[Rfam]
RNA sequence: CAAGCAGGCUGCAAUUGCAGUGCUUCGUUCUGUGGGAGUGCUGCCAUUGUCCUGCUGAGAGUAACUCUGUUAGUGCUGUCUUCAGUUUCACCUGUACGGUGGUGAAACUUUGCACUUAACAUGUACAAGU
Number, nucleotide and partner (000 for none) at each position: 001c000002a000003a056004g055005c054006a053007g052008g051009c000010u000011g000012c000013a000014a000015u000016u000017g000018c043019a042020g041021u040022g039023c038024u037025u036026c035027g000028u000029u000030c000031u000032g000033u000034g000035g026036g025037a024038g023039u022040g021041c020042u019043g018044c000045c000046a000047u000048u000049g000050u000051c008052c007053u006054g005055c004056u003057g000058a000059g000060a000061g000062u000063a000064a000065c000066u123067c000068u121069g120070u119071u118072a117073g116074u000075g000076c000077u000078g000079u000080c000081u000082u000083c000084a109085g108086u107087u106088u105089c104090a103091c102092c101093u000094g000095u000096a000097c000098g000099g000100u000101g092102g091103u090104g089105a088106a087107a086108c085109u084110u000111u000112g000113c000114a000115c000116u073117u072118a071119a070120c069121a068122u000123g066124u000125a000126c000127a000128a000129g000130u000
A member of the RNA family "Small nucleolar RNA SNORA69" from Atlantisia rogersi, 130 nucleotides long. A search with the family's covariance model found it, with a score of 78 bits. Pairs were carried over by alignment from the consensus structure, which was predicted with PFOLD. Its family is annotated with RNA processing and nucleolus in the Gene Ontology. From the family's description: U69 is a member of the H/ACA class of small nucleolar RNAs (snoRNAs) which act as guides in the the modification of uridines to pseudouridines. Taxonomically the source falls in Atlantisia (Eukaryota, Opisthokonta, Archosauria, Neoaves).